Rfam assigns this 100-nucleotide RNA from Sphingobacterium sp. CZ-2 to the family "SAM riboswitch aptamer (S box leader)". It scores 70 bits against the family's covariance model. The source organism's lineage runs through Bacteria, Bacteroidota, Sphingobacteriia, Sphingobacteriales and Sphingobacterium. The base pairs follow the family's consensus structure, which is taken from published work. Its family is annotated with regulation of gene expression in the Gene Ontology.
RNA sequence: CGCUUAUAGAGAAAGGCAGAGGGACUAGACCCGAUGAAGCCUUAGCAACCUGUCCCUUGACAAGGUGCUACAUUCUACCUCUAAAGAGGAACGAUAAGCU
Numbered sequence: 001c002g003c004u005u006a007u008a009g010a011g012a013a014a015g016g017c018a019g020a021g022g023g024a025c026u027a028g029a030c031c032c033g034a035u036g037a038a039g040c041c042u043u044a045g046c047a048a049c050c051u052g053u054c055c056c057u058u059g060a061c062a063a064g065g066u067g068c069u070a071c072a073u074u075c076u077a078c079c080u081c082u083a084a085a086g087a088g089g090a091a092c093g094a095u096a097a098g099c100u
Base pairs, nucleotide, nucleotide: 002099003098004097005096006095007094013043014042015041016040017039021032022031023030026077027076028075029074044069045068046067047066049065050064051062052061053060054059078089079088080087081086